[Rfam]
RNA: U11 spliceosomal RNA
RNA sequence: UAAAAGGGUUGGUUGGCUAAGGGUUAGUUUAGAUGGGUGGUGUGUUUAUUUAUGGUUAGUAUAAAAACAGCAGUGACAGUGAGAUUAAAUACUGUAGCGUGAGACAAAAAGUAAGUUAAACGCACCGCACCUAAUCGCUCAUUCAAACCCACUUUAAAUAUGCCACGCCCACCCUCGUUUGGUGGGUGCUGUAUGGCCAUCAAGUCAUAUGGCCGACAUAAUUUGUGGAAACCAAUGGGGUUGGCUAGCUCGGCUGGCCCUCCAUUU
Numbered sequence: 001u002a003a004a005a006g007g008g009u010u011g012g013u014u015g016g017c018u019a020a021g022g023g024u025u026a027g028u029u030u031a032g033a034u035g036g037g038u039g040g041u042g043u044g045u046u047u048a049u050u051u052a053u054g055g056u057u058a059g060u061a062u063a064a065a066a067a068c069a070g071c072a073g074u075g076a077c078a079g080u081g082a083g084a085u086u087a088a089a090u091a092c093u094g095u096a097g098c099g100u101g102a103g104a105c106a107a108a109a110a111g112u113a114a115g116u117u118a119a120a121c122g123c124a125c126c127g128c129a130c131c132u133a134a135u136c137g138c139u140c141a142u143u144c145a146a147a148c149c150c151a152c153u154u155u156a157a158a159u160a161u162g163c164c165a166c167g168c169c170c171a172c173c174c175u176c177g178u179u180u181g182g183u184g185g186g187u188g189c190u191g192u193a194u195g196g197c198c199a200u201c202a203a204g205u206c207a208u209a210u211g212g213c214c215g216a217c218a219u220a221a222u223u224u225g226u227g228g229a230a231a232c233c234a235a236u237g238g239g240g241u242u243g244g245c246u247a248g249c250u251c252g253g254c255u256g257g258c259c260c261u262c263c264a265u266u267u
Base pairs, nucleotide, nucleotide: 008217009216010215011214012213014165015164016163017162166188167187168186169185170184171183172182173181189212190211191210192209193208194207195206235265236264237263238262240261243258246256247255248254249253